[Rfam]
RNA sequence: CCGCAAGCCUUCCAGCGUGAGGGGGUCUGGCGUGGCCCCCCCAUUCCUACAGCGCUUGCCAGAGCAGCCCGGGACGGUUUGAGGCCUCUCCCUGCUCAACCCGGGGAGGGGUUAUAGACAUCCCGGACACCC
Dot-bracket structure: ..((((((.........((...(((((......)))))...))..........))))))..........(((((..........((((((.(((.......))).)))))).........))))).......
Numbered sequence: 001c002c003g004c005a006a007g008c009c010u011u012c013c014a015g016c017g018u019g020a021g022g023g024g025g026u027c028u029g030g031c032g033u034g035g036c037c038c039c040c041c042c043a044u045u046c047c048u049a050c051a052g053c054g055c056u057u058g059c060c061a062g063a064g065c066a067g068c069c070c071g072g073g074a075c076g077g078u079u080u081g082a083g084g085c086c087u088c089u090c091c092c093u094g095c096u097c098a099a100c101c102c103g104g105g106g107a108g109g110g111g112u113u114a115u116a117g118a119c120a121u122c123c124c125g126g127a128c129a130c131c132c
Stems, first nucleotide, its partner, number of pairs: 003059006018043002023038005070125005085111006092104003